Rfam assigns this 75-nucleotide RNA from Danaus chrysippus to the family "mir-2796 microRNA precursor family". The family's consensus secondary structure was predicted with RNAalifold. It scores 79 bits against the family's covariance model.
RNA sequence: UGCUAUCAGCAGGGGUUUCUUUCGGCCUUCAGCUUGUGUAGACUGUAGGCCGGCGGAAACUACUUGCUGACACUA
Dot-bracket structure: .....(((.(((((((((((.(((((((.(((..........))).))))))).))))))).)))).))).....